Shown here is a 164-nucleotide sequence from Phocaeicola massiliensis, a member of the family "RT-3 RNA". Pairs were carried over by alignment from the consensus structure, which is taken from published work.
RNA sequence: AAUCGGAGACCCUGCACAGGUACGAGAUUACCACCGCCAUUCUCCGAGGGAUUCGAGCCUCGGCAACAGCAUGAUAAUAUAUAUUUAUUAAUGGAAAGCCGGAACAUAUCUUUAACCACAUGUGGGGAGAGGUUGGACCACUCCCCACGAGACCGGAAGGCGGU
Numbered sequence: 001a002a003u004c005g006g007a008g009a010c011c012c013u014g015c016a017c018a019g020g021u022a023c024g025a026g027a028u029u030a031c032c033a034c035c036g037c038c039a040u041u042c043u044c045c046g047a048g049g050g051a052u053u054c055g056a057g058c059c060u061c062g063g064c065a066a067c068a069g070c071a072u073g074a075u076a077a078u079a080u081a082u083a084u085u086u087a088u089u090a091a092u093g094g095a096a097a098g099c100c101g102g103a104a105c106a107u108a109u110c111u112u113u114a115a116c117c118a119c120a121u122g123u124g125g126g127g128a129g130a131g132g133u134u135g136g137a138c139c140a141c142u143c144c145c146c147a148c149g150a151g152a153c154c155g156g157a158a159g160g161c162g163g164u
Stems, first nucleotide, its partner, number of pairs: 003047004008042001009040001014037002019032004049059002060102005072090005115164003119160001121157001123155003132146001135144002
Dot-bracket structure: ..((((.((....((...((((......))))...))..).).)))).((.......))(((((.......(((((.........))))).......)))))............(((.(.(.(((......(..((......)).)......))).)..).)))

It is annotated as a small RNA. It is one of the family's seed sequences.